[Rfam]
Nucleotides: 076
Stems, first nucleotide, its partner, number of pairs: 001076004007070002011029005020062002023059001031048001034043003053068004
Number, partner (000 for none) and nucleotide at each position: 001076g002075a003074a004073c005000u006000u007070u008069g009000a010000g011029g012028a013027c014026g015025g016000a017000a018000c019000a020062g021061g022000c023059a024000g025015c026014c027013g028012u029011c030000g031048c032000c033000a034043c035042g036041c037000a038000u039000u040000a041036g042035c043034g044000g045000u046000u047000g048031g049000a050000g051000a052000u053068g054067c055066a056065g057000a058000u059023u060000c061021u062020c063000a064000c065056c066055u067054g068053c069008u070007a071000u072000u073004g074003u075002u076001c
A member of the RNA family "skipping-rope RNA" from Fervidicella metallireducens, 76 nucleotides long.
The base pairs follow the family's consensus structure, which is taken from published work.
Lineage of the source: Bacteria > Bacillati > Clostridia > Clostridiaceae > Fervidicella metallireducens.
The match comes from Rfam's covariance-model search (44 bits).